[Rfam]
The record is a 117-nucleotide RNA from Planobispora rosea, which matches "Actinobacteria sRNA Ms_IGR-7" in Rfam.
The family's RNA type in Rfam is small RNA.
Rfam 15.1 lists 463 matches to the family in 194 species.
Pairs were carried over by alignment from the consensus structure.
The organism belongs to Planobispora, within Bacteria.
The match comes from Rfam's covariance-model search (45 bits).
The literature on the family includes a 2013 paper in RNA by Li et al., "Identification of small RNAs in Mycobacterium smegmatis using heterologous Hfq".
RNA sequence: AUCAUGCGCCUUCCCGGGUCGGCCGAUCGAAGCGUGCAGCACUCCUAUCUCCCCGGCUCAGAGGGCGCAUGGCCAAACAGGCGCUCAGAAGUGAUCAGGCCGGUGCCGCGCACCGCG
Numbered sequence: 001a002u003c004a005u006g007c008g009c010c011u012u013c014c015c016g017g018g019u020c021g022g023c024c025g026a027u028c029g030a031a032g033c034g035u036g037c038a039g040c041a042c043u044c045c046u047a048u049c050u051c052c053c054c055g056g057c058u059c060a061g062a063g064g065g066c067g068c069a070u071g072g073c074c075a076a077a078c079a080g081g082c083g084c085u086c087a088g089a090a091g092u093g094a095u096c097a098g099g100c101c102g103g104u105g106c107c108g109c110g111c112a113c114c115g116c117g
Base pairs, nucleotide, nucleotide: 002072003071004070005069006068007067008066009065010064011063012062013061016059017058019056020055021054022053025049026048027047029045031043032042101115102114103113104112105111106110